This 66-nucleotide RNA belongs to the Rfam family "L2-Alphaproteobacteria ribosomal protein leader". On this family, see Eckert and Weinberg, BMC Microbiol 2020: "Discovery of 20 novel ribosomal leader candidates in bacteria and archaea". Pairs were carried over by alignment from the consensus structure, which is taken from published work. Rfam's curators put it in the seed alignment.
RNA sequence: GGCCACCUUAUGGGGGCUUUACCAUAGCAGAGUAUACUUUGCCGUACAAGCAACGGAAGAAAGAAA
Numbered sequence: 001g002g003c004c005a006c007c008u009u010a011u012g013g014g015g016g017c018u019u020u021a022c023c024a025u026a027g028c029a030g031a032g033u034a035u036a037c038u039u040u041g042c043c044g045u046a047c048a049a050g051c052a053a054c055g056g057a058a059g060a061a062a063g064a065a066a
Stems, first nucleotide, its partner, number of pairs: 001018004006014003027043001030040002032037001